[Rfam]
RNA: Bacterial RNase P class A
RNA sequence: GCAGUAUUCCGGCACUGUCGCUGGCAUCUUUUUAAGAUGCGAGAGGAAAGUCCGGGCAGCAUAGGGUAUCCUGCUUCCGAAAGUAGAAGCUAUUGGUGACAGUAGAUGUAGGCAGAAGAGAAUGACCGCCAUCUUUGUUGAUGGUAAGGGUGAGAAGGUAGUGUAAGAGACUACCAGCAGGUGGGUGAUCACUUGGCUGUGCCGUUCAGGAGCUGCAAGUUCAUGUAAACCGUUGUUUGAGGGCUGCCCGCCCGAGCUUUAGCACAAUGGAGGGUAGAAUGCUUGAGUUGCAGGGUGACCUGCAAAUUAGAUAAAUGACAGGCAUCUUCCUAUUAUCGAAAGAUGAGGAAGAGACGGAACCCGGCUUAUAGGAUUACUGCUUUG
Numbered sequence: 001g002c003a004g005u006a007u008u009c010c011g012g013c014a015c016u017g018u019c020g021c022u023g024g025c026a027u028c029u030u031u032u033u034a035a036g037a038u039g040c041g042a043g044a045g046g047a048a049a050g051u052c053c054g055g056g057c058a059g060c061a062u063a064g065g066g067u068a069u070c071c072u073g074c075u076u077c078c079g080a081a082a083g084u085a086g087a088a089g090c091u092a093u094u095g096g097u098g099a100c101a102g103u104a105g106a107u108g109u110a111g112g113c114a115g116a117a118g119a120g121a122a123u124g125a126c127c128g129c130c131a132u133c134u135u136u137g138u139u140g141a142u143g144g145u146a147a148g149g150g151u152g153a154g155a156a157g158g159u160a161g162u163g164u165a166a167g168a169g170a171c172u173a174c175c176a177g178c179a180g181g182u183g184g185g186u187g188a189u190c191a192c193u194u195g196g197c198u199g200u201g202c203c204g205u206u207c208a209g210g211a212g213c214u215g216c217a218a219g220u221u222c223a224u225g226u227a228a229a230c231c232g233u234u235g236u237u238u239g240a241g242g243g244c245u246g247c248c249c250g251c252c253c254g255a256g257c258u259u260u261a262g263c264a265c266a267a268u269g270g271a272g273g274g275u276a277g278a279a280u281g282c283u284u285g286a287g288u289u290g291c292a293g294g295g296u297g298a299c300c301u302g303c304a305a306a307u308u309a310g311a312u313a314a315a316u317g318a319c320a321g322g323c324a325u326c327u328u329c330c331u332a333u334u335a336u337c338g339a340a341a342g343a344u345g346a347g348g349a350a351g352a353g354a355c356g357g358a359a360c361c362c363g364g365c366u367u368a369u370a371g372g373a374u375u376a377c378u379g380c381u382u383u384g
Stems, first nucleotide, its partner, number of pairs: 001380006008373003011369001012323002015321005021043002024040006048367003052364005057215004064249004069211005074089004090105001092103004106206001111203004126149002128145006157175006177197001178195007219280004230270005241253004288305007